The family of this 112-nucleotide RNA is "mir-395 microRNA precursor family". mir-395 was identified in both Arabidopsis thaliana and Oryza sativa computationally and was later experimentally verified. mir-395 is thought to target mRNAs coding for ATP sulphurylases. The mature sequence is excised from the 3' arm of the hairpin. A reference for the family is Jones-Rhoades and Bartel (2004), "Computational Identification of Plant MicroRNAs and Their Targets, Including a Stress-Induced miRNA", Mol Cell. Rfam links the family to the GO terms miRNA-mediated post-transcriptional gene silencing and RISC complex.

RNA sequence: AUGUCCCCUUGAGUUCCCUUAAACGCUUCAUUGUUCAUACUUUGUUAUCAUCUAUCGAUCGAUCAAUCAAUCUGAUGAACACUGAAGUGUUUGGGGGGACUCUAGGUGACAU
Numbered sequence: 001a002u003g004u005c006c007c008c009u010u011g012a013g014u015u016c017c018c019u020u021a022a023a024c025g026c027u028u029c030a031u032u033g034u035u036c037a038u039a040c041u042u043u044g045u046u047a048u049c050a051u052c053u054a055u056c057g058a059u060c061g062a063u064c065a066a067u068c069a070a071u072c073u074g075a076u077g078a079a080c081a082c083u084g085a086a087g088u089g090u091u092u093g094g095g096g097g098g099a100c101u102c103u104a105g106g107u108g109a110c111a112u
Stems, first nucleotide, its partner, number of pairs: 005108001007106003011102020032081007